[Rfam]
A member of the RNA family "Nitrogen stress-induced RNA 1" from Calothrix sp. NIES-4101, 63 nucleotides long. It is annotated as a small RNA. A reference for the family is Ionescu et al. (2010), "Heterocyst-specific transcription of NsiR1, a non-coding RNA encoded in a tandem array of direct repeats in cyanobacteria", J Mol Biol. The pairing is the family consensus, mapped onto this sequence.

RNA sequence: UGGUAGAUGCACCUUAAUCUUCAAAUUCCCUCAGUAAGCUAAUGCUUUCUGGGGAUUUUUUUU
Numbered sequence: 001u002g003g004u005a006g007a008u009g010c011a012c013c014u015u016a017a018u019c020u021u022c023a024a025a026u027u028c029c030c031u032c033a034g035u036a037a038g039c040u041a042a043u044g045c046u047u048u049c050u051g052g053g054g055a056u057u058u059u060u061u062u063u
Stems, first nucleotide, its partner, number of pairs: 002013003027055004032051003036047003